Shown here is a 176-nucleotide RNA sequence from Streptomyces sp. cf386, a member of the family "c-di-AMP riboswitch aptamer (ydaO/yuaA leader)".

[Rfam]
RNA sequence: CCGACUCACUCACUCACGCACGGCAGGAGCGGGGGACCCAGGUAAGUCGCCGAACCGGCCGCCUCGAUGGCGCGUCGGCACGGCUCGGGGUUAAGUCGCGCUGCCACCCGGCGGCACGACCGGGCACCUCCCCGCCCGAACCCGACAGCUCACCUCGCAGGCGUCGGAGAGGAACA
Numbered sequence: 001c002c003g004a005c006u007c008a009c010u011c012a013c014u015c016a017c018g019c020a021c022g023g024c025a026g027g028a029g030c031g032g033g034g035g036a037c038c039c040a041g042g043u044a045a046g047u048c049g050c051c052g053a054a055c056c057g058g059c060c061g062c063c064u065c066g067a068u069g070g071c072g073c074g075u076c077g078g079c080a081c082g083g084c085u086c087g088g089g090g091u092u093a094a095g096u097c098g099c100g101c102u103g104c105c106a107c108c109c110g111g112c113g114g115c116a117c118g119a120c121c122g123g124g125c126a127c128c129u130c131c132c133c134g135c136c137c138g139a140a141c142c143c144g145a146c147a148g149c150u151c152a153c154c155u156c157g158c159a160g161g162c163g164u165c166g167g168a169g170a171g172g173a174a175c176a
Stems, first nucleotide, its partner, number of pairs: 001161002006028002029158006039087001088143003096119003122137004
A search with the family's covariance model found it, with a score of 42 bits.